Background
Saccharopolyspora sRNA 350: a 511-nucleotide RNA. Rfam links the family to the GO term regulation of secondary metabolite biosynthetic process. The literature on the family includes a 2013 paper in PLoS One by Liu et al., "Prediction and characterization of small non-coding RNAs related to secondary metabolites in Saccharopolyspora erythraea". The family's RNA type in Rfam is antisense RNA.
[Rfam]
RNA sequence: GUGGCGGUGUGCUCCCACCGGGCGUCCUCGUCCAGCAGGGCGUGUUCGCCGAACUGGGAUCCGUCGGCGAGGACGUCGAGGGCGAGUUCGUCGCCGUACUGGCCGACGGUGGUCUGGCUGAUGCGGCCGUGCGCGAUCAGGUGCAGCCGGUCCGCGGGCGCGCCGCGUUCGACCAGCGUCUCGCCGGCGCGGAAGUCAUGUUGCUCGCACCGGUCGGCGAGGGCCGUCAGGACGUCCACGUCGUCGAAGCCGCGCAGCACCGCGAGUUCGCCGAGCUCCCGGGGGAUCACCCGGACGCGGGCGCCGUCCUGGACGAACUCCACGGUGCCGUCACCGACGGUGUAGGACAAGCGCCGGUUCACCCGGUAGGCCCCGCCCUUGGUCUCCACCCACGGGAGCAUCCGCAGCAGCCAGCGGGAGGUGAUCUCCUGCAUCUGCGGGGCGGAUUUGGUCGUGUGGGCGAGAUUGCGGGCGGCCGCCGUGCCCAGGCUGGUCUGCCGGGGCGUCUCCG
Number, nucleotide and partner (000 for none) at each position: 001g000002u000003g390004g389005c000006g387007g386008u000009g384010u000011g328012c327013u000014c325015c324016c000017a000018c000019c000020g321021g320022g319023c000024g000025u316026c315027c000028u000029c000030g000031u313032c312033c311034a310035g309036c000037a307038g000039g000040g000041c000042g304043u303044g302045u301046u300047c299048g298049c000050c000051g233052a000053a000054c230055u229056g228057g227058g000059a000060u000061c226062c000063g224064u223065c111066g110067g000068c108069g000070a000071g000072g000073a000074c000075g103076u000077c102078g000079a100080g099081g000082g097083c096084g095085a000086g000087u000088u000089c000090g000091u000092c000093g000094c000095c084096g083097u082098a000099c080100u079101g000102g077103c075104c000105g000106a000107c000108g068109g000110u066111g065112g000113u000114c000115u000116g000117g000118c221119u220120g000121a000122u217123g000124c000125g000126g000127c212128c000129g210130u209131g206132c000133g204134c203135g202136a201137u000138c000139a000140g197141g000142u000143g196144c195145a000146g000147c000148c000149g000150g190151u000152c000153c000154g188155c187156g000157g185158g184159c183160g182161c178162g177163c000164c000165g174166c000167g000168u000169u000170c000171g000172a000173c000174c165175a000176g000177c162178g161179u000180c000181u000182c160183g159184c158185c157186g000187g155188c154189g000190c150191g000192g000193a000194a000195g144196u143197c140198a000199u000200g000201u136202u135203g134204c133205u000206c131207g000208c000209a130210c129211c000212g127213g000214u000215c000216g000217g122218c000219g000220a119221g118222g000223g064224c063225c000226g061227u057228c056229a055230g054231g000232a000233c051234g296235u295236c294237c293238a000239c000240g290241u289242c000243g287244u286245c285246g000247a000248a000249g000250c282251c281252g280253c000254g278255c000256a277257g276258c275259a000260c000261c270262g269263c000264g000265a000266g000267u000268u000269c262270g261271c000272c000273g000274a000275g258276c257277u256278c254279c000280c252281g251282g250283g000284g000285g245286a244287u243288c000289a241290c240291c000292c000293g237294g236295a235296c234297g000298c048299g047300g046301g045302c044303g043304c042305c000306g000307u037308c000309c035310u034311g033312g032313a031314c000315g026316a025317a000318c000319u022320c021321c020322a000323c000324g015325g014326u000327g012328c011329c342330g341331u340332c339333a000334c000335c000336g000337a000338c000339g332340g331341u330342g329343u000344a000345g000346g000347a000348c000349a000350a000351g379352c000353g377354c000355c375356g374357g373358u000359u000360c000361a000362c370363c369364c000365g000366g000367u000368a000369g363370g362371c000372c000373c357374c356375g355376c000377c353378c000379u351380u000381g000382g000383u000384c009385u000386c007387c006388a000389c004390c003391c431392a430393c000394g428395g427396g426397a425398g000399c423400a422401u421402c000403c418404g000405c416406a000407g415408c000409a000410g000411c000412c000413a000414g000415c407416g405417g000418g403419a000420g000421g401422u400423g399424a000425u397426c396427u395428c394429c000430u392431g391432c000433a000434u000435c000436u000437g476438c475439g000440g473441g000442g000443c470444g469445g000446a467447u465448u464449u463450g000451g461452u460453c000454g000455u000456g000457u000458g000459g000460g452461c451462g000463a449464g448465a447466u000467u446468g000469c444470g443471g000472g000473c440474g000475g438476c437477c000478g509479c000480c505481g504482u503483g000484c501485c500486c497487a496488g495489g000490c000491u000492g000493g000494u000495c488496u487497g486498c000499c000500g485501g484502g000503g482504c481505g480506u000507c000508u000509c478510c000511g000